[Rfam]
Rfam assigns this 104-nucleotide RNA from Acipenser ruthenus to the family "Vault RNA". NCBI's taxonomy places the organism under Eukaryota, Eumetazoa, Euteleostomi, Acipenserinae, Acipenser. The match comes from Rfam's covariance-model search (38 bits).

RNA sequence: GCGCAGGUUUAGCUCAGUGGUUACUUCGAUUGAAAAUGGUUUCGAUUCUCAUCUCUCGGAGUCUAUCCUGGAGGUUCUAACCACAGACGCUGCACGGCGUUUUU
Numbered sequence: 001g002c003g004c005a006g007g008u009u010u011a012g013c014u015c016a017g018u019g020g021u022u023a024c025u026u027c028g029a030u031u032g033a034a035a036a037u038g039g040u041u042u043c044g045a046u047u048c049u050c051a052u053c054u055c056u057c058g059g060a061g062u063c064u065a066u067c068c069u070g071g072a073g074g075u076u077c078u079a080a081c082c083a084c085a086g087a088c089g090c091u092g093c094a095c096g097g098c099g100u101u102u103u104u
Stems, first nucleotide, its partner, number of pairs: 002099003006095001012088001014086001017084004025080002028077002